[Rfam]
RNA: mir-133 microRNA precursor family
Organism: Gallus gallus
RNA sequence: UUCCUGGGGCUGGUAAAAAGGAACCAGAUCAACUACAACUGGAUUUGGUCCCCUUCAACCAGCUGCAGUGG
Numbered sequence: 001u002u003c004c005u006g007g008g009g010c011u012g013g014u015a016a017a018a019a020g021g022a023a024c025c026a027g028a029u030c031a032a033c034u035a036c037a038a039c040u041g042g043a044u045u046u047g048g049u050c051c052c053c054u055u056c057a058a059c060c061a062g063c064u065g066c067a068g069u070g071g
Base pairs, nucleotide, nucleotide: 004068005067006066008064009063010062011061012060013059014058017055018054020051021050022049024048025047026046027045028044029043030042